[Rfam]
RNA sequence: CAGGCGGUAUCCGAAAUGGAGCUGCACUGGAGCUGGUUGUAAGCAAUAGAGGGUAAAUGAACCUUAUAUUUCUGCUCUGAGCCGUAGGGACCGAGACAGAGGA
Numbered sequence: 001c002a003g004g005c006g007g008u009a010u011c012c013g014a015a016a017u018g019g020a021g022c023u024g025c026a027c028u029g030g031a032g033c034u035g036g037u038u039g040u041a042a043g044c045a046a047u048a049g050a051g052g053g054u055a056a057a058u059g060a061a062c063c064u065u066a067u068a069u070u071u072c073u074g075c076u077c078u079g080a081g082c083c084g085u086a087g088g089g090a091c092c093g094a095g096a097c098a099g100a101g102g103a
Stems, first nucleotide, its partner, number of pairs: 001029003004025005010020002072099003075095003079091001082089002
RNA: pan motif
Organism: Paenibacillus protaetiae